[Rfam]
Background
The record is a 110-nucleotide RNA sequence from Streptomyces adustus, which matches "SAM (S-adenosyl methionine) riboswitch aptamer" in Rfam. Rfam 15.1 lists 2,360 matches to the family in 1,305 species. Its family is annotated with regulation of gene expression and S-adenosylmethionine metabolic process in the Gene Ontology.
RNA sequence: AGCUACGAGUUCCGGUGAUCAAGCCCUGGCUGGCCGGACGGCAACCCUCGACGCAGUGGGGUGCCCCAGGUGAAGGCUCGGCGGAUCUCAUUCUUCUGCAAGUGCGCUCA
Numbered sequence: 001a002g003c004u005a006c007g008a009g010u011u012c013c014g015g016u017g018a019u020c021a022a023g024c025c026c027u028g029g030c031u032g033g034c035c036g037g038a039c040g041g042c043a044a045c046c047c048u049c050g051a052c053g054c055a056g057u058g059g060g061g062u063g064c065c066c067c068a069g070g071u072g073a074a075g076g077c078u079c080g081g082c083g084g085a086u087c088u089c090a091u092u093c094u095u096c097u098g099c100a101a102g103u104g105c106g107c108u109c110a
Base pairs, nucleotide, nucleotide: 001078002077003076004075009039011038012037013036014035015034016033022031023030040065041064042063045061046060047059049056081099082098083097084096085095